[Rfam]
RNA sequence: AUGAAGUGGGACAUGCCCGUUUGGAAAUUACUCUGAUGCAUGUUUUAUUAAUUAAUUGAUUUUUGGGAAACGGGGUGUUACAAUUUU
Numbered sequence: 001a002u003g004a005a006g007u008g009g010g011a012c013a014u015g016c017c018c019g020u021u022u023g024g025a026a027a028u029u030a031c032u033c034u035g036a037u038g039c040a041u042g043u044u045u046u047a048u049u050a051a052u053u054a055a056u057u058g059a060u061u062u063u064u065g066g067g068a069a070a071c072g073g074g075g076u077g078u079u080a081c082a083a084u085u086u087u
Stems, first nucleotide, its partner, number of pairs: 003086003007082002010079005016074006